[Rfam]
RNA sequence: AGCAAAAUGAUGAGUUAUGUUUCUGAGUAUGUGAUGUAGAAACCAUAUACAGGUCUUCAAAGUUCUCUGAUUGCU
Numbered sequence: 001a002g003c004a005a006a007a008u009g010a011u012g013a014g015u016u017a018u019g020u021u022u023c024u025g026a027g028u029a030u031g032u033g034a035u036g037u038a039g040a041a042a043c044c045a046u047a048u049a050c051a052g053g054u055c056u057u058c059a060a061a062g063u064u065c066u067c068u069g070a071u072u073g074c075u
Base pairs, nucleotide, nucleotide: 001075002074003073004072005071
The family of this 75-nucleotide sequence from Amborella trichopoda is "Small nucleolar RNA R160". For this family Rfam cites "The high diversity of snoRNAs in plants: identification and comparative study of 120 snoRNA genes from Oryza sativa" (Chen et al., Nucleic Acids Res, 2003). Gene Ontology terms of the family: RNA processing and nucleolus. About the family: snoR160 is a C/D box small nucleolar RNA, which acts as a methylation guide for 25S ribosomal RNA in plants. snoR160 has been alternatively named snoZ270 in rice. Lineage of the source: Eukaryota > Streptophyta > Magnoliopsida > Amborellales > Amborella. The family's RNA type in Rfam is C/D-box small nucleolar RNA.